A member of the RNA family "Bacterial RNase P class A" from Actinoplanes italicus, 403 nucleotides long.
It scores 290 bits against the family's covariance model.
Pairs were carried over by alignment from the consensus structure, which is taken from published work.
NCBI's taxonomy places the organism under Bacteria, Actinomycetota, Micromonosporales, Micromonosporaceae, Actinoplanes.
It is annotated as a ribozyme.
[Rfam]
RNA sequence: CGAGUCGGUUGGGCGGUCGCGUCGGCACCCGCAAAAGUGCCGCCGAGGAACGUCCGGACUCCGCAGAGCAGGGUGGUUGUUAACGGCAACCCGGGGCGACCCGCGGGAAAGUGCCACAGAAAACAGACCGCCGAGGGCGUACGCCAUCGGUAAGGGUGAAACGGUGAGGUAAGAGCUCACCAGCACCCCGGGUGACCGGGGUGGCUCGGUAAACCCCACCCGGAGCAAGGCCAAGCAAGGCCCGAGCCGCAUGGCGAGGGCCGGCGCAGGCGUUUGAGGGCUGCUCGCCCGAGCCUGCGGGUAGGCUGCUCGAGCCUGCCGGCAACGGCAGGCCUAGAUGGAUGGCCGCCACCGGCGACCCCGGUCGCCGGUACAGAAUCCGGCGUACACGCCGGCUCGUCCG
Number, nucleotide and partner (000 for none) at each position: 001c399002g398003a397004g396005u395006c394007g393008g392009u391010u000011g388012g350013g349014c348015g347016g346017u345018c344019g000020c045021g044022u000023c042024g041025g040026c039027a038028c037029c000030c000031g000032c000033a000034a000035a000036a000037g028038u027039g026040c025041c024042g023043c000044c021045g020046a000047g000048g000049a000050a386051c385052g384053u000054c383055c382056g381057g380058a379059c225060u224061c223062c222063g000064c000065a000066g286067a285068g284069c283070a000071g221072g220073g219074u218075g217076g090077u089078u088079g087080u086081u000082a000083a000084c000085g000086g080087c079088a078089a077090c076091c105092c103093g102094g101095g100096g000097c000098g000099a000100c095101c094102c093103g092104c000105g091106g216107g215108a000109a000110a000111g214112u213113g210114c209115c208116a000117c000118a000119g000120a000121a000122a000123a000124c000125a000126g000127a000128c155129c154130g151131c150132c149133g148134a147135g000136g145137g144138c143139g000140u000141a000142c000143g138144c137145c136146a000147u134148c133149g132150g131151u130152a000153a000154g129155g128156g000157u000158g000159a000160a000161a000162c000163g181164g180165u179166g178167a177168g176169g000170u000171a000172a000173g000174a000175g000176c168177u167178c166179a165180c164181c163182a000183g205184c203185a202186c201187c200188c199189c198190g197191g196192g000193u000194g000195a000196c191197c190198g189199g188200g187201g186202u185203g184204g000205c183206u000207c000208g115209g114210u113211a000212a000213a112214c111215c107216c106217c075218a074219c073220c072221c071222g062223g061224a060225g059226c000227a000228a000229g307230g306231c305232c304233a000234a000235g000236c000237a000238a000239g000240g000241c000242c000243c000244g000245a000246g000247c000248c000249g000250c000251a000252u000253g000254g000255c000256g000257a000258g000259g000260g000261c000262c000263g000264g000265c000266g298267c297268a296269g295270g294271c293272g000273u000274u000275u000276g000277a000278g290279g289280g288281c287282u000283g069284c068285u067286c066287g281288c280289c279290c278291g000292a000293g271294c270295c269296u268297g267298c266299g000300g000301g000302u000303a000304g232305g231306c230307u229308g000309c000310u000311c000312g000313a000314g333315c332316c331317u330318g329319c328320c327321g326322g000323c000324a000325a000326c321327g320328g319329c318330a317331g316332g315333c314334c000335u000336a000337g000338a000339u000340g000341g000342a000343u000344g018345g017346c016347c015348g014349c013350c012351a000352c000353c000354g000355g000356c000357g000358a000359c000360c000361c000362c000363g000364g000365u000366c000367g000368c000369c000370g000371g000372u000373a000374c000375a000376g000377a000378a000379u058380c057381c056382g055383g054384c052385g051386u050387a000388c011389a000390c000391g009392c008393c007394g006395g005396c004397u003398c002399g001400u000401c000402c000403g000